Small nucleolar RNA SNORA40: a 123-nucleotide sequence from Cavia porcellus. Its family is annotated with nucleolus and RNA processing in the Gene Ontology. About the family: The snoRNA ACA 40 belongs to the H/ACA family of snoRNAs and guides the pseudouridylation of 28S rRNA subunit at position U4565. The match comes from Rfam's covariance-model search (87 bits). The family's RNA type in Rfam is H/ACA-box small nucleolar RNA. A reference for the family is Ofengand and Bakin (1997), "Mapping to nucleotide resolution of pseudouridine residues in large subunit ribosomal RNAs from representative eukaryotes, prokaryotes, archaebacteria, mitochondria and chloroplasts", J Mol Biol.
RNA sequence: GGUACUUGUGUGUGUUUGUCUUAGCCUGUGGACUAAAAUUUAAUAGGUGCAAAAACUAAAUUCUCUUUUGCAACACAUAACUCAUUGUUCUGAUGAGCUUUGAUACAUAUAAGAAGGAAUACC
Numbered sequence: 001g002g003u004a005c006u007u008g009u010g011u012g013u014g015u016u017u018g019u020c021u022u023a024g025c026c027u028g029u030g031g032a033c034u035a036a037a038a039u040u041u042a043a044u045a046g047g048u049g050c051a052a053a054a055a056c057u058a059a060a061u062u063c064u065c066u067u068u069u070g071c072a073a074c075a076c077a078u079a080a081c082u083c084a085u086u087g088u089u090c091u092g093a094u095g096a097g098c099u100u101u102g103a104u105a106c107a108u109a110u111a112a113g114a115a116g117g118a119a120u121a122c123c
Base pairs, nucleotide, nucleotide: 002050003049004048005047006046007045008044009043012039013038015036016035018033019032025030060120061119062118063117064116066114067113068112069111070110076102077101079099081097082096083095084094085093